[Rfam]
The record is a 79-nucleotide RNA sequence from Allacma fusca, which matches "mir-263 microRNA precursor family" in Rfam. For this family Rfam cites "Direct sequencing and expression analysis of a large number of miRNAs in Aedes aegypti and a multi-species survey of novel mosquito miRNAs" (Li et al., BMC Genomics, 2009). Its family is annotated with miRNA-mediated post-transcriptional gene silencing and RISC complex in the Gene Ontology.
RNA sequence: CUGUACUUAUCCUUGGCACUGGAAGAAUUCACAGAUAGAACUGUAAUCGUGGAUUCCCUGGUGCCAUAGAUAAAAGAAC
Number, nucleotide and partner (000 for none) at each position: 001c000002u000003g000004u076005a000006c000007u073008u072009a071010u070011c000012c000013u000014u066015g065016g064017c063018a062019c000020u060021g059022g058023a000024a000025g055026a054027a000028u000029u052030c051031a050032c049033a000034g047035a000036u000037a000038g000039a000040a000041c000042u000043g000044u000045a000046a000047u034048c000049g032050u031051g030052g029053a000054u026055u025056c000057c000058c022059u021060g020061g000062u018063g017064c016065c015066a014067u000068a000069g000070a010071u009072a008073a007074a000075a000076g004077a000078a000079c000